[Rfam]
The family of this 98-nucleotide sequence from Camellia sinensis is "Small nucleolar RNA Z157/R69/R10". Its Rfam clan is "SNORD52 clan". By type it is a C/D-box small nucleolar RNA. Its family is annotated with nucleolus and RNA processing in the Gene Ontology. A reference for the family is Chen et al. (2003), "The high diversity of snoRNAs in plants: identification and comparative study of 120 snoRNA genes from Oryza sativa", Nucleic Acids Res.
RNA sequence: GUGUGUGCGCUGAUGAGUAUAUUUUGUGGACUAGAGUUUCUGAUCUGGGUUUGGAUCCCAGAGUCUGACGACUAACCCUUGGCUGUCUGAGCACACUU
Numbered sequence: 001g002u003g004u005g006u007g008c009g010c011u012g013a014u015g016a017g018u019a020u021a022u023u024u025u026g027u028g029g030a031c032u033a034g035a036g037u038u039u040c041u042g043a044u045c046u047g048g049g050u051u052u053g054g055a056u057c058c059c060a061g062a063g064u065c066u067g068a069c070g071a072c073u074a075a076c077c078c079u080u081g082g083c084u085g086u087c088u089g090a091g092c093a094c095a096c097u098u
Stems, first nucleotide, its partner, number of pairs: 001098001003096006037070001039068002044062006
The family has 10 seed sequences and 836 matches in Rfam 15.1.